[Rfam]
RNA sequence: CAGGUAGAACAGGCAAUCGCCGCGCAAGGUUUCGUGCCUUGCGGGGAGGAAAGUCCGGGCUCCGCAGAGCAGAAUGCCGGCUAACGGCCGGGCGCGGCAACGCGACGGAAAGUGGAGCAGAAAGCAAUACCGCCGAUGGCUGCUUUGCGCAGCACAGGUAAGGGUGAAAAGGUGCGGUAAGAGCGCACCGUGCACUUGGUAACAAGGCGCAGCAGGCUAAACCCCAUUCGGAGCAAGACCAAACAGAACACCACGACGCUGCUCGCCGAGUGUUCGGGUAGGUUGCUGGAGCGCAUCAGCAAUGGUGCGCCUAGAGGAAUGAUUGCCCAACGACAGAACCCGGCUUAUCGUUUUGCCUGUAUG
Numbered sequence: 001c002a003g004g005u006a007g008a009a010c011a012g013g014c015a016a017u018c019g020c021c022g023c024g025c026a027a028g029g030u031u032u033c034g035u036g037c038c039u040u041g042c043g044g045g046g047a048g049g050a051a052a053g054u055c056c057g058g059g060c061u062c063c064g065c066a067g068a069g070c071a072g073a074a075u076g077c078c079g080g081c082u083a084a085c086g087g088c089c090g091g092g093c094g095c096g097g098c099a100a101c102g103c104g105a106c107g108g109a110a111a112g113u114g115g116a117g118c119a120g121a122a123a124g125c126a127a128u129a130c131c132g133c134c135g136a137u138g139g140c141u142g143c144u145u146u147g148c149g150c151a152g153c154a155c156a157g158g159u160a161a162g163g164g165u166g167a168a169a170a171g172g173u174g175c176g177g178u179a180a181g182a183g184c185g186c187a188c189c190g191u192g193c194a195c196u197u198g199g200u201a202a203c204a205a206g207g208c209g210c211a212g213c214a215g216g217c218u219a220a221a222c223c224c225c226a227u228u229c230g231g232a233g234c235a236a237g238a239c240c241a242a243a244c245a246g247a248a249c250a251c252c253a254c255g256a257c258g259c260u261g262c263u264c265g266c267c268g269a270g271u272g273u274u275c276g277g278g279u280a281g282g283u284u285g286c287u288g289g290a291g292c293g294c295a296u297c298a299g300c301a302a303u304g305g306u307g308c309g310c311c312u313a314g315a316g317g318a319a320u321g322a323u324u325g326c327c328c329a330a331c332g333a334c335a336g337a338a339c340c341c342g343g344c345u346u347a348u349c350g351u352u353u354u355g356c357c358u359g360u361a362u363g
Stems, first nucleotide, its partner, number of pairs: 001359010011348001012327007020046002023043006051346003055343005060233004067264004072229005077091005092106001093104004107224002112222002114218002130163002132159003137156002139153005171189006190213001191211003195207001196205003237284004246275006258266002291310008
A member of the RNA family "Bacterial RNase P class A" from Neisseria canis, 363 nucleotides long. Lineage of the source: Bacteria > Pseudomonadota > Betaproteobacteria > Neisseriales > Neisseria. By type it is a ribozyme. A search with the family's covariance model found it, with a score of 304 bits.